[Rfam]
RNA sequence: GAAGAUAAAGAAAUUAAUAUCUAUAUAAUUCUCAUAAUAAGGUUGAGAAGUUUCUACGAGGGAACCGUAAAUUUCCUAUCUAUGGAUAUUCUAUGGGGUAAG
Numbered sequence: 001g002a003a004g005a006u007a008a009a010g011a012a013a014u015u016a017a018u019a020u021c022u023a024u025a026u027a028a029u030u031c032u033c034a035u036a037a038u039a040a041g042g043u044u045g046a047g048a049a050g051u052u053u054c055u056a057c058g059a060g061g062g063a064a065c066c067g068u069a070a071a072u073u074u075c076c077u078a079u080c081u082a083u084g085g086a087u088a089u090u091c092u093a094u095g096g097g098g099u100a101a102g
Stems, first nucleotide, its partner, number of pairs: 018088008029049006059077006
RNA: Purine riboswitch aptamer